[Rfam]
RNA sequence: AUGGAGGCUAGAGUUACACUUGGGUACUAGUGAUUGCCUUAGUGUGCUAGAGUCCCCGAAGAAUAACAACUGACCUUACUCACUGGCUGUGGACCUUGUGGCGCAGUCAGUCACCAGGUUAGUGACAUGC
Dot-bracket structure: .(.(.((((..((.((((((..((((........))))..))))))))..))).).).)..........(((((((.....(((((.((((..........)))).)))))....)))))))........
Numbered sequence: 001a002u003g004g005a006g007g008c009u010a011g012a013g014u015u016a017c018a019c020u021u022g023g024g025u026a027c028u029a030g031u032g033a034u035u036g037c038c039u040u041a042g043u044g045u046g047c048u049a050g051a052g053u054c055c056c057c058g059a060a061g062a063a064u065a066a067c068a069a070c071u072g073a074c075c076u077u078a079c080u081c082a083c084u085g086g087c088u089g090u091g092g093a094c095c096u097u098g099u100g101g102c103g104c105a106g107u108c109a110g111u112c113a114c115c116a117g118g119u120u121a122g123u124g125a126c127a128u129g130c
Stems, first nucleotide, its partner, number of pairs: 002059001004057001006055001007053003012048002015046006023038004070122007082111005088105004

Source information:
A member of the RNA family "Small nucleolar RNA SNORA3/SNORA45 family" from Jaculus jaculus, 130 nucleotides long. A search with the family's covariance model found it, with a score of 102 bits. Rfam describes the family as follows. The members of this family belong to the H/ACA class of snoRNAs which are thought to guide the sites of modification of uridines to pseudouridines. The family is grouped with related families in Rfam's "SNORA3 clan". The base pairs follow the family's consensus structure, which was predicted with RNAalifold.